[Rfam]
RNA: Guanidine-I riboswitch aptamer
Organism: Nisaea acidiphila
RNA sequence: GUGCAGCGCGUCUAGGGUUCCGGCCGCAAUUGCGGCGCUGGUCCGAGAGACGCACUCCGGCGAAAUGGGAAAUGCCGGAGACACGGCGGGGCAAAAUCCCGGGAGAU
Numbered sequence: 001g002u003g004c005a006g007c008g009c010g011u012c013u014a015g016g017g018u019u020c021c022g023g024c025c026g027c028a029a030u031u032g033c034g035g036c037g038c039u040g041g042u043c044c045g046a047g048a049g050a051c052g053c054a055c056u057c058c059g060g061c062g063a064a065a066u067g068g069g070a071a072a073u074g075c076c077g078g079a080g081a082c083a084c085g086g087c088g089g090g091g092c093a094a095a096a097u098c099c100c101g102g103g104a105g106a107u
Stems, first nucleotide, its partner, number of pairs: 008053005015044002020041002022038001023036005055080008082102001084105001088100003